[Rfam]
RNA sequence: GUCUUGUCUGUGAUGUUAUAAUACAAAUGUCUGAACAUAUGAGUUCUAGUGAUUCUGUCUUUUAACUGAGACAAGAC
Numbered sequence: 001g002u003c004u005u006g007u008c009u010g011u012g013a014u015g016u017u018a019u020a021a022u023a024c025a026a027a028u029g030u031c032u033g034a035a036c037a038u039a040u041g042a043g044u045u046c047u048a049g050u051g052a053u054u055c056u057g058u059c060u061u062u063u064a065a066c067u068g069a070g071a072c073a074a075g076a077c
Stems, first nucleotide, its partner, number of pairs: 002076007